RNA sequence: AGGGUUUCUAGCCUUCUCUUCCCAGUUCCCCCUAGAGUCAGGAAAAGCUGGGUUGAGAGGGCAGGAAAAAAAAAAA
Numbered sequence: 001a002g003g004g005u006u007u008c009u010a011g012c013c014u015u016c017u018c019u020u021c022c023c024a025g026u027u028c029c030c031c032c033u034a035g036a037g038u039c040a041g042g043a044a045a046a047g048c049u050g051g052g053u054u055g056a057g058a059g060g061g062c063a064g065g066a067a068a069a070a071a072a073a074a075a076a
Stems, first nucleotide, its partner, number of pairs: 014059005021052005031042003
mir-320 microRNA precursor family: a 76-nucleotide sequence from Propithecus coquereli. It scores 70 bits against the family's covariance model. The family's consensus secondary structure was predicted with RNAalifold.